[Rfam]
RNA sequence: GUCUGCUGUUGGAUGCGCUUGAUCGUGGCGCCCUUGGGCCCCACCACGAGCCCUACCACGCGGUAGGG
Numbered sequence: 001g002u003c004u005g006c007u008g009u010u011g012g013a014u015g016c017g018c019u020u021g022a023u024c025g026u027g028g029c030g031c032c033c034u035u036g037g038g039c040c041c042c043a044c045c046a047c048g049a050g051c052c053c054u055a056c057c058a059c060g061c062g063g064u065a066g067g068g
Stems, first nucleotide, its partner, number of pairs: 002067008010058003015053001017051003021047001023046001025044002028041001030039003
RNA: mir-1905 microRNA precursor family
Organism: Equus caballus